A member of the RNA family "JUMPstart RNA" from Escherichia coli, 39 nucleotides long.
Nucleotides: 039
Base pairs, nucleotide, nucleotide: 008026009025010024011023012022
Number, partner (000 for none) and nucleotide at each position: 001000c002000a003000g004000u005000a006000u007000u008026c009025a010024g011023g012022u013000a014000g015000c016000u017000g018000u019000u020000g021000a022012g023011c024010c025009u026008g027000g028000g029000g030000c031000g032000g033000u034000a035000g036000c037000g038000u039000g